[Rfam]
RNA sequence: CAAGCCUGCAAGGAUCAGAAGGUCUAAACAGGUCCCUCAGGUCCGCCGAAAGGUUGAACCGAGACGAAAGGGUGGUUUUUAUGGAUGUCUUUUGUCCACCCGUCAACGCCCUCCAUAUCUCUCGCUGGCGAGAACUUUGGAGAGGAAUCAAAAACUAGUCCUAGUU
Number, nucleotide and partner (000 for none) at each position: 001c000002a000003a000004g000005c000006c000007u030008g029009c000010a000011a025012g024013g000014a023015u022016c021017a000018g000019a000020a000021g016022g015023u014024c012025u011026a000027a000028a000029c008030a007031g000032g000033u000034c000035c066036c063037u062038c061039a000040g059041g000042u057043c056044c000045g000046c000047c052048g000049a000050a000051a000052g047053g000054u000055u000056g043057a042058a000059c040060c000061g038062a037063g036064a000065c000066g035067a000068a000069a000070g000071g000072g000073u000074g000075g000076u000077u000078u000079u000080u000081a000082u000083g000084g160085a159086u158087g155088u154089c000090u153091u152092u151093u150094g149095u000096c000097c000098a000099c000100c000101c000102g000103u000104c000105a000106a000107c000108g000109c145110c144111c142112u141113c140114c139115a000116u000117a000118u000119c000120u133121c132122u131123c130124g129125c000126u000127g000128g000129c124130g123131a122132g121133a120134a000135c000136u000137u000138u000139g114140g113141a112142g111143a000144g110145g109146a000147a000148u000149c094150a093151a092152a091153a090154a088155c087156u000157a000158g086159u085160c084161c000162u000163a000164g000165u000166u000
The family of this 166-nucleotide part of an RNA from Fusarium odoratissimum is "Ascomycota telomerase RNA". A reference for the family is Qi et al. (2013), "The common ancestral core of vertebrate and fungal telomerase RNAs", Nucleic Acids Res. The source organism's lineage runs through Eukaryota, Dikarya, Pezizomycotina, sordariomyceta and Fusarium oxysporum species complex. Rfam classes the family as a non-coding RNA gene. The match comes from Rfam's covariance-model search (355 bits). Gene Ontology terms of the family: telomere maintenance via telomerase, telomerase activity and telomerase catalytic core complex.